[Rfam]
RNA sequence: UUAGAAUUCUAAGUAGUAGUGCCGCAGGUUUGGUGAAAGUUCAUGUGAAAAACAGCCUGCACCCUGCUGCUUAAAAUUCAAG
Numbered sequence: 001u002u003a004g005a006a007u008u009c010u011a012a013g014u015a016g017u018a019g020u021g022c023c024g025c026a027g028g029u030u031u032g033g034u035g036a037a038a039g040u041u042c043a044u045g046u047g048a049a050a051a052a053c054a055g056c057c058u059g060c061a062c063c064c065u066g067c068u069g070c071u072u073a074a075a076a077u078u079c080a081a082g
Stems, first nucleotide, its partner, number of pairs: 001082002004079004010073010024060007

Shown here is an 82-nucleotide sequence from Romanomermis culicivorax, a member of the family "mir-252 microRNA precursor family".
The match comes from Rfam's covariance-model search (59 bits).
The literature on the family includes a 2009 paper in BMC Genomics by Li et al., "Direct sequencing and expression analysis of a large number of miRNAs in Aedes aegypti and a multi-species survey of novel mosquito miRNAs".
The family has 44 seed sequences and 422 matches in Rfam 15.1.
Gene Ontology terms of the family: RISC complex and miRNA-mediated post-transcriptional gene silencing.
The family is grouped with related families in Rfam's "mir-252 microRNA precursor family".
The organism belongs to Romanomermis, within Eukaryota.
The base pairs follow the family's consensus structure, which was predicted with RNAalifold.